A member of the RNA family "msiK RNA" from Microbacterium sp. C448, 58 nucleotides long. The source organism's lineage runs through Bacteria, Bacillati, Actinomycetota, Microbacteriaceae and Microbacterium. By type it is a cis-regulatory element.
RNA sequence: CGCCACUUCCAUUCACUACGGAUCGUCCGGCACGUACCUGCCGGUGAAGGAGAAAACA
Numbered sequence: 001c002g003c004c005a006c007u008u009c010c011a012u013u014c015a016c017u018a019c020g021g022a023u024c025g026u027c028c029g030g031c032a033c034g035u036a037c038c039u040g041c042c043g044g045u046g047a048a049g050g051a052g053a054a055a056a057c058a
Stems, first nucleotide, its partner, number of pairs: 009050002012048004027044006